Potassium channel RNA editing signal: a 114-nucleotide sequence from Aotus nancymaae.
The literature on the family includes a 2004 paper in Nat Struct Mol Biol by Bhalla et al., "Control of human potassium channel inactivation by editing of a small mRNA hairpin".
Rfam 15.1 lists 14,095 matches to the family in 1,000 species.
From the family's description: This family represents a group of sequences related to the human potassium channel Kv1.1 hairpin element which directs the efficient modification of an adenosine to inosine by an adenosine deaminase acting on RNA (ADAR).
[Rfam]
RNA sequence: GUCGGCUAUGGAGACAUGGCACCCGUCACUGUGGGUGGCAAGAUCGUGGGCUCUCUGUGCGCCAUUGCCGGCGUGCUGACCAUUUCCCUGCCCGUGCCCGUCAUUGUCUCCAAU
Dot-bracket structure: ((.((..((((.(((..(..((..............((((........(((.........)))..........))))................)).)..))).))))..)).))